[Rfam]
This 74-nucleotide RNA sequence from Pelargonium zonale belongs to the Rfam family "tRNA". It is one of the family's seed sequences. Lineage of the source: Eukaryota > Streptophytina > eudicotyledons > Gunneridae > Pelargonium.

RNA sequence: GGGCCUGUAGCUCAGAGGAUUAGAGCACGUGGCUACGAACCACGAUGUCGGGGGUUCGAAUCCCUCCUAGCCCA
Numbered sequence: 001g002g003g004c005c006u007g008u009a010g011c012u013c014a015g016a017g018g019a020u021u022a023g024a025g026c027a028c029g030u031g032g033c034u035a036c037g038a039a040c041c042a043c044g045a046u047g048u049c050g051g052g053g054g055u056u057c058g059a060a061u062c063c064c065u066c067c068u069a070g071c072c073c074a
Base pairs, nucleotide, nucleotide: 001073002072003071004070007067010026011025012024013023028044029043030042031041032040050066051065052064053063054062